[Rfam]
RNA: Pseudomonas rnk leader
Organism: Pseudomonas cremoricolorata
RNA sequence: CGCUGGGCUUGAGUAUUUAUUCGGCUGUGGUAGUGUCGGUCGCAACCUCGCUGACGCUUGGCUAACCGAAAAACCCCGCCCUUCCGGGCGGGGUUUUGCUUUAUC
Numbered sequence: 001c002g003c004u005g006g007g008c009u010u011g012a013g014u015a016u017u018u019a020u021u022c023g024g025c026u027g028u029g030g031u032a033g034u035g036u037c038g039g040u041c042g043c044a045a046c047c048u049c050g051c052u053g054a055c056g057c058u059u060g061g062c063u064a065a066c067c068g069a070a071a072a073a074c075c076c077c078g079c080c081c082u083u084c085c086g087g088g089c090g091g092g093g094u095u096u097u098g099c100u101u102u103a104u105c
Stems, first nucleotide, its partner, number of pairs: 017033005070097012